The family of this 100-nucleotide RNA sequence is "Pyrrolysine insertion sequence mttB".
Rfam links the family to the GO term pyrrolysine incorporation.
The base pairs follow the family's consensus structure, which was predicted with CMfinder.
RNA sequence: UAGGCAGACUCCAAGGUACCUGAUGCUCAGGCAGGUCAUGAGAAGACAAUGACAACACUUCUCCCAGCACUCUCGGGUGCAAAUACCCUGUACGGCUCAG
Numbered sequence: 001u002a003g004g005c006a007g008a009c010u011c012c013a014a015g016g017u018a019c020c021u022g023a024u025g026c027u028c029a030g031g032c033a034g035g036u037c038a039u040g041a042g043a044a045g046a047c048a049a050u051g052a053c054a055a056c057a058c059u060u061c062u063c064c065c066a067g068c069a070c071u072c073u074c075g076g077g078u079g080c081a082a083a084u085a086c087c088c089u090g091u092a093c094g095g096c097u098c099a100g
Stems, first nucleotide, its partner, number of pairs: 003012001025032001033062003077098001079096002